[Rfam]
Rfam assigns this 83-nucleotide sequence from Tetzosporium hominis to the family "tRNA". The match comes from Rfam's covariance-model search (48 bits). The family's RNA type in Rfam is transfer RNA.

RNA sequence: GCGGUCGUGGCGGAAUGGCAGACGCGCUAGGUUGAGGGCCUAGUGGGAGAAAUCCCGUGGAAGUUCGACUCUUCUCGGCCGCA
Number, nucleotide and partner (000 for none) at each position: 001g082002c081003g080004g079005u078006c077007g076008u000009g000010g025011c024012g023013g000014a000015a000016u000017g000018g000019c000020a000021g000022a000023c012024g011025c010026g000027c043028u042029a041030g040031g039032u000033u000034g000035a000036g000037g000038g000039c031040c030041u029042a028043g027044u000045g000046g000047g000048a000049g000050a000051a000052a000053u000054c000055c000056c000057g000058u000059g075060g074061a073062a072063g071064u000065u000066c000067g000068a000069c000070u000071c063072u062073u061074c060075u059076c007077g006078g005079c004080c003081g002082c001083a000